[Rfam]
RNA sequence: UAUAUAUCGGAGGCAGUGACCUCCAUAUUUC
Numbered sequence: 001u002a003u004a005u006a007u008c009g010g011a012g013g014c015a016g017u018g019a020c021c022u023c024c025a026u027a028u029u030u031c
Stems, first nucleotide, its partner, number of pairs: 002030001004028004009024005014018001
Description:
The record is a 31-nucleotide sequence from Lepisosteus oculatus, which matches "Iron response element II" in Rfam. Rfam classes the family as a cis-regulatory element. Rfam describes the family as follows. IRE, TFRC, SLC40A1, SDHB, SLC11A2, CDC42BPA, ACO2, ALAS2_H.SAPIENS, CDC14A, EPAS1, ALAS2, qoxD, Hao1, NDUFS1, transferrin, Aconitate. The match comes from Rfam's covariance-model search (35 bits).